A member of the RNA family "mir-290 microRNA precursor family" from Papio anubis, 67 nucleotides long.
RNA sequence: GUGAUCCUCAAAUGUGGAGCACUAUUCUGAUGUCCAAGCGGAAAGUGCUGCGACAUUUGAGCGUCAC
Numbered sequence: 001g002u003g004a005u006c007c008u009c010a011a012a013u014g015u016g017g018a019g020c021a022c023u024a025u026u027c028u029g030a031u032g033u034c035c036a037a038g039c040g041g042a043a044a045g046u047g048c049u050g051c052g053a054c055a056u057u058u059g060a061g062c063g064u065c066a067c
Stems, first nucleotide, its partner, number of pairs: 004064002007061006014054002017051001018049006025043003
Lineage of the source: Eukaryota > Metazoa > Haplorrhini > Simiiformes > Papio.
The match comes from Rfam's covariance-model search (58 bits).